[Rfam]
RNA: Bacterial small subunit ribosomal RNA, nucleotides 1 to 570
RNA sequence: CCCUUGCAUCUCAUGAAUUGAUCGCUGGGUGGGCCGUGCCUUAACACAUGCAAGUCGAGCGAGAACGGCCUCUUCGGAGGCUCAGUAGAGCGGCGCACGGGUGAGUAACGCGUGGAUGAUCUACCUUUGAGAUUGGGAUAACAGCUGGAAACGACUGCUAAUACCAGAUACGCUUCAUAUUUAACUUUAUGAGGGAAAGAUGGCCUCUGCUUGCAAGCUAUCGCUCGAAGAUGAGUCCGCGUUUCAUUAGCUAGUUGGUAGGGUAAUGGCCUACCAAGGCGACGAUGAAUAGCUGGUCUGAGAGGAUGACCAGCCACACUGGGACUGGAACACGGCCCAGACUCCUACGGGAGGCAGCAGUGGGGAAUAUUGCGCAAUGGGGGAAACCCUGACGCAGCGACGCCAUGUGAGGGACGAAGGCUCUAGGGUCGUAAACCUCUGUCAGAAGGGAAGAACCUCAUAAGAUCUAAUAAAUCUUUUGACUGACGGUACCUUCAGAGGAAGCACCGGCUAACUCCGUGCCAGCAGCCGCGGUAAUACGGAGGGUGCGAGCGUUAAUCGGAAUUACUG
Numbered sequence: 001c002c003c004u005u006g007c008a009u010c011u012c013a014u015g016a017a018u019u020g021a022u023c024g025c026u027g028g029g030u031g032g033g034c035c036g037u038g039c040c041u042u043a044a045c046a047c048a049u050g051c052a053a054g055u056c057g058a059g060c061g062a063g064a065a066c067g068g069c070c071u072c073u074u075c076g077g078a079g080g081c082u083c084a085g086u087a088g089a090g091c092g093g094c095g096c097a098c099g100g101g102u103g104a105g106u107a108a109c110g111c112g113u114g115g116a117u118g119a120u121c122u123a124c125c126u127u128u129g130a131g132a133u134u135g136g137g138a139u140a141a142c143a144g145c146u147g148g149a150a151a152c153g154a155c156u157g158c159u160a161a162u163a164c165c166a167g168a169u170a171c172g173c174u175u176c177a178u179a180u181u182u183a184a185c186u187u188u189a190u191g192a193g194g195g196a197a198a199g200a201u202g203g204c205c206u207c208u209g210c211u212u213g214c215a216a217g218c219u220a221u222c223g224c225u226c227g228a229a230g231a232u233g234a235g236u237c238c239g240c241g242u243u244u245c246a247u248u249a250g251c252u253a254g255u256u257g258g259u260a261g262g263g264u265a266a267u268g269g270c271c272u273a274c275c276a277a278g279g280c281g282a283c284g285a286u287g288a289a290u291a292g293c294u295g296g297u298c299u300g301a302g303a304g305g306a307u308g309a310c311c312a313g314c315c316a317c318a319c320u321g322g323g324a325c326u327g328g329a330a331c332a333c334g335g336c337c338c339a340g341a342c343u344c345c346u347a348c349g350g351g352a353g354g355c356a357g358c359a360g361u362g363g364g365g366a367a368u369a370u371u372g373c374g375c376a377a378u379g380g381g382g383g384a385a386a387c388c389c390u391g392a393c394g395c396a397g398c399g400a401c402g403c404c405a406u407g408u409g410a411g412g413g414a415c416g417a418a419g420g421c422u423c424u425a426g427g428g429u430c431g432u433a434a435a436c437c438u439c440u441g442u443c444a445g446a447a448g449g450g451a452a453g454a455a456c457c458u459c460a461u462a463a464g465a466u467c468u469a470a471u472a473a474a475u476c477u478u479u480u481g482a483c484u485g486a487c488g489g490u491a492c493c494u495u496c497a498g499a500g501g502a503a504g505c506a507c508c509g510g511c512u513a514a515c516u517c518c519g520u521g522c523c524a525g526c527a528g529c530c531g532c533g534g535u536a537a538u539a540c541g542g543a544g545g546g547u548g549c550g551a552g553c554g555u556u557a558a559u560c561g562g563a564a565u566u567a568c569u570g
Stems, first nucleotide, its partner, number of pairs: 017559003021556001023554004029406004035402002037399002040364001045362003049359003054094003059091002063086001067082006101317003110242008120234002125230007133167004142157003146153002173194007199222006243289003250280003255277008292314004296307004319340005342353004370396001372395003378391005409439004419430004443501001445496005453487001459481002504549005515544005525532002